[Rfam]
RNA sequence: AUCCAAAUAGGAAAUGGUGCUCUUCCUAACCCAACCGCCUUAAAAAGCUGAUGACGCCUGAUUAAUA
Numbered sequence: 001a002u003c004c005a006a007a008u009a010g011g012a013a014a015u016g017g018u019g020c021u022c023u024u025c026c027u028a029a030c031c032c033a034a035c036c037g038c039c040u041u042a043a044a045a046a047g048c049u050g051a052u053g054a055c056g057c058c059u060g061a062u063u064a065a066u067a
Stems, first nucleotide, its partner, number of pairs: 010026004016058004021053001037048002040045001
The record is a 67-nucleotide sequence from Flavobacterium humi, which matches "Fluoride riboswitch aptamer (crcB RNA motif)" in Rfam. The match comes from Rfam's covariance-model search (45 bits). Pairs were carried over by alignment from the consensus structure, which is taken from published work.